[Rfam]
RNA sequence: AAACUGAAAAAAGCGCUGGUGCUUGGGAAAAAUCCGUUGCAUACUCAUCUGCAGCCUGGAAUCCGGGACCGUUCAAAAGGGUCCAGAUACUAGGCACGACGAGGACGCGCGCGCAGACAGUACAUUCCAAAGGGUACGGCAAGCGCGCGCCCGCAGGAGUAACGACGCAGAUGGGCUCUUUUCAACGGUCCCCGAGCAGACGAGGGAGAGGUUUAUCGAACCGUCAGCGGAUGCCUCUCGGCUGGGCGGACGCAGCCGCAAGCAAUCGACAAAACCGCAAAGCGAUUUGCGGGACAAAACGGAUUGCGGCGUCCGAA
Numbered sequence: 001a002a003a004c005u006g007a008a009a010a011a012a013g014c015g016c017u018g019g020u021g022c023u024u025g026g027g028a029a030a031a032a033u034c035c036g037u038u039g040c041a042u043a044c045u046c047a048u049c050u051g052c053a054g055c056c057u058g059g060a061a062u063c064c065g066g067g068a069c070c071g072u073u074c075a076a077a078a079g080g081g082u083c084c085a086g087a088u089a090c091u092a093g094g095c096a097c098g099a100c101g102a103g104g105a106c107g108c109g110c111g112c113g114c115a116g117a118c119a120g121u122a123c124a125u126u127c128c129a130a131a132g133g134g135u136a137c138g139g140c141a142a143g144c145g146c147g148c149g150c151c152c153g154c155a156g157g158a159g160u161a162a163c164g165a166c167g168c169a170g171a172u173g174g175g176c177u178c179u180u181u182u183c184a185a186c187g188g189u190c191c192c193c194g195a196g197c198a199g200a201c202g203a204g205g206g207a208g209a210g211g212u213u214u215a216u217c218g219a220a221c222c223g224u225c226a227g228c229g230g231a232u233g234c235c236u237c238u239c240g241g242c243u244g245g246g247c248g249g250a251c252g253c254a255g256c257c258g259c260a261a262g263c264a265a266u267c268g269a270c271a272a273a274a275c276c277g278c279a280a281a282g283c284g285a286u287u288u289g290c291g292g293g294a295c296a297a298a299a300c301g302g303a304u305u306g307c308g309g310c311g312u313c314c315g316a317a
Stems, first nucleotide, its partner, number of pairs: 020198008029189001207238005216227001218225002239258006262307006275292007
This 317-nucleotide sequence from Acetonema longum belongs to the Rfam family "glmS glucosamine-6-phosphate activated ribozyme aptamer". Gene Ontology terms of the family: catalytic activity and regulation of gene expression. Taxonomically the source falls in Acetonema longum (Bacteria, Bacillota, Negativicutes, Acetonemataceae). It is annotated as a riboswitch. This entry contains a glucosamine-6-phosphate activated ribozyme that is found in the mRNA for GlmS. GlmS is an enzyme that uses fructose-6-phosphate and glutamine to generate glucosamine-6-phosphate.